RNA sequence: GAGUUGGUAGCUCAGUUGGUAGAGCACUCGGCUUUUAACCGAUCGGUCCUGGGUUCGAAUCCCAGCCAACUCA
Numbered sequence: 001g002a003g004u005u006g007g008u009a010g011c012u013c014a015g016u017u018g019g020u021a022g023a024g025c026a027c028u029c030g031g032c033u034u035u036u037a038a039c040c041g042a043u044c045g046g047u048c049c050u051g052g053g054u055u056c057g058a059a060u061c062c063c064a065g066c067c068a069a070c071u072c073a
Base pairs, nucleotide, nucleotide: 001072002071003070004069005068006067007066010025011024012023013022028042029041030040031039049065050064051063052062053061
tRNA: a 73-nucleotide RNA sequence from Euglena gracilis.
The organism belongs to Euglena, within Eukaryota.
By type it is a transfer RNA.